[Rfam]
RNA: pemK RNA
RNA sequence: GUAAUGAAACUUCCGUUCAGUCACAGUCCGAGCGUGAUAAAACCGUCGCAGGCAAUGAGAACGGCCCGCCAUCAUCAUGGGGGGAGGUGCAAUUCCUAUGG
Numbered sequence: 001g002u003a004a005u006g007a008a009a010c011u012u013c014c015g016u017u018c019a020g021u022c023a024c025a026g027u028c029c030g031a032g033c034g035u036g037a038u039a040a041a042a043c044c045g046u047c048g049c050a051g052g053c054a055a056u057g058a059g060a061a062c063g064g065c066c067c068g069c070c071a072u073c074a075u076c077a078u079g080g081g082g083g084g085a086g087g088u089g090c091a092a093u094u095c096c097u098a099u100g101g
Stems, first nucleotide, its partner, number of pairs: 012098001013064006065084003069080003085097003